A member of the RNA family "mir-194 microRNA precursor family" from Clupea harengus, 81 nucleotides long. For this family Rfam cites "New microRNAs from mouse and human" (Lagos-Quintana et al., RNA, 2003). Rfam links the family to the GO terms miRNA-mediated post-transcriptional gene silencing and RISC complex. Pairs were carried over by alignment from the consensus structure, which was predicted with RNAalifold. The source organism's lineage runs through Eukaryota, Euteleostomi, Teleostei, Osteoglossocephalai and Clupea.
[Rfam]
Nucleotides: 081
Stems, first nucleotide, its partner, number of pairs: 010074003016068008026058006033052003
Number, partner (000 for none) and nucleotide at each position: 001000u002000g003000g004000u005000a006000c007000u008000u009000g010074c011073u012072g013000g014000u015000u016068g017067u018066a019065a020064c021063a022062g023061c024000a025000a026058c027057u028056c029055c030054a031053u032000g033052u034051g035050g036000a037000a038000g039000c040000u041000g042000c043000c044000a045000u046000u047000g048000u049000u050035c051034c052033a053031g054030u055029g056028g057027a058026g059000a060000u061023g062022c063021u064020g065019u066018u067017a068016c069000c070000u071000g072012u073011g074010g075000c076000g077000a078000g079000u080000u081000c